[Rfam]
RNA sequence: UCAGGGUCAAUCUCGCGAUACAGGGACAUACAAUAUUAGAGUUGAAAUUUACUUUACUCUGAUAUCUGUCUCGGGAAGGUCUGAGAUUAAGUCGGAAUUCCACUAUCUAGUGAAUUUUAAUGCUCUAGAAGGGUAAAUUCCAUCAUUGGAUUGCGGCAAUACCAGAAAACAGCGUUUCAAUGGCAGGAAAUUAUUGUUAGUUUAACAAUUAACCUGGGAAGUUUUCAAUGUUGAUAAAAACAUUGUUAACAGAGGUUGCCAUUGAGAUGAUGAAAAUGUUCCGCGACUGGCUUUUAAUGUAGUUUAAUUCGCGAGACACAAUUGUGUGUAACUCAAUUCAGACUAAUCUGACUCUGA
Number, nucleotide and partner (000 for none) at each position: 001u357002c356003a355004g354005g000006g000007u351008c350009a349010a000011u000012c315013u314014c313015g312016c311017g310018a309019u000020a000021c000022a000023g072024g071025g070026a069027c068028a000029u000030a000031c000032a000033a000034u000035a000036u000037u056038a055039g054040a053041g052042u051043u000044g000045a000046a000047a000048u000049u000050u000051a042052c041053u040054u039055u038056a037057c000058u000059c000060u000061g000062a000063u000064a000065u000066c000067u000068g027069u026070c025071u024072c023073g000074g000075g000076a000077a000078g000079g000080u000081c341082u340083g339084a338085g337086a000087u000088u000089a000090a288091g287092u286093c285094g000095g000096a000097a000098u000099u000100c000101c000102a000103c000104u000105a000106u000107c000108u000109a000110g000111u000112g000113a000114a000115u000116u000117u000118u000119a000120a000121u135122g134123c133124u132125c131126u000127a000128g000129a000130a000131g125132g124133g123134u122135a121136a000137a152138u000139u150140c149141c148142a147143u000144c000145a000146u000147u142148g141149g140150a139151u000152u137153g284154c283155g282156g281157c000158a280159a279160u278161a000162c000163c000164a000165g000166a000167a000168a000169a000170c000171a000172g000173c269174g268175u267176u266177u265178c264179a263180a262181u261182g260183g259184c258185a257186g256187g000188a000189a000190a000191u000192u000193a000194u000195u000196g000197u000198u000199a000200g000201u000202u000203u000204a000205a000206c000207a000208a000209u000210u000211a000212a000213c000214c000215u000216g000217g000218g000219a000220a000221g000222u000223u000224u000225u000226c000227a000228a000229u000230g000231u000232u000233g000234a000235u000236a000237a000238a000239a000240a000241c000242a000243u000244u000245g000246u000247u000248a000249a000250c000251a000252g000253a000254g000255g000256u186257u185258g184259c183260c182261a181262u180263u179264g178265a177266g176267a175268u174269g173270a000271u000272g000273a000274a000275a000276a000277u000278g160279u159280u158281c156282c155283g154284c153285g093286a092287c091288u090289g000290g000291c000292u000293u000294u000295u000296a000297a000298u000299g000300u000301a000302g000303u000304u000305u000306a000307a000308u000309u018310c017311g016312c015313g014314a013315g012316a329317c328318a327319c326320a325321a000322u000323u000324g000325u320326g319327u318328g317329u316330a000331a000332c000333u000334c000335a000336a000337u085338u084339c083340a082341g081342a000343c000344u000345a000346a000347u000348c000349u009350g008351a007352c000353u000354c004355u003356g002357a001
Rfam assigns this 357-nucleotide RNA from Microctonus hyperodae to the family "Nuclear RNase P". By type it is a ribozyme. The family has 116 seed sequences and 3,848 matches in Rfam 15.1. It scores 106 bits against the family's covariance model.